Rfam assigns this 96-nucleotide sequence from Oscillibacter sp. 1-3 to the family "Purine riboswitch aptamer". The family's consensus secondary structure is taken from published work.

RNA sequence: CUGUUAGCGUACAUACUGGCUUGUAUAAGUUCAUGAUUGGAUGAGCGUUUCUACCAACUGCCGUAACAGUUGACUACAAGUUUUUGGGCUUGGCCC
Numbered sequence: 001c002u003g004u005u006a007g008c009g010u011a012c013a014u015a016c017u018g019g020c021u022u023g024u025a026u027a028a029g030u031u032c033a034u035g036a037u038u039g040g041a042u043g044a045g046c047g048u049u050u051c052u053a054c055c056a057a058c059u060g061c062c063g064u065a066a067c068a069g070u071u072g073a074c075u076a077c078a079a080g081u082u083u084u085u086g087g088g089c090u091u092g093g094c095c096c
Base pairs, nucleotide, nucleotide: 018082019081020080021079022078023077024076025075029046030045031044032043033042034041055072056071057070058069059068060067
The match comes from Rfam's covariance-model search (52 bits).